This 72-nucleotide RNA from Biomphalaria glabrata belongs to the Rfam family "mir-87 microRNA precursor family". A reference for the family is Sempere et al. (2003), "Temporal regulation of microRNA expression in Drosophila melanogaster mediated by hormonal signals and broad-Complex gene activity", Dev Biol. Lineage of the source: Eukaryota > Protostomia > Mollusca > Gastropoda > Biomphalaria. Its family is annotated with miRNA-mediated post-transcriptional gene silencing and RISC complex in the Gene Ontology. The family has 44 seed sequences and 420 matches in Rfam 15.1.
RNA sequence: GGUGGGUGUGCCUGAAAUUUGGCUCAGGCCUAGCUAAGACGAAGGUGAGCAAAGUUUCAGGUGUAUUCACUU
Numbered sequence: 001g002g003u004g005g006g007u008g009u010g011c012c013u014g015a016a017a018u019u020u021g022g023c024u025c026a027g028g029c030c031u032a033g034c035u036a037a038g039a040c041g042a043a044g045g046u047g048a049g050c051a052a053a054g055u056u057u058c059a060g061g062u063g064u065a066u067u068c069a070c071u072u
Stems, first nucleotide, its partner, number of pairs: 002070006009063007017055004023049004029045003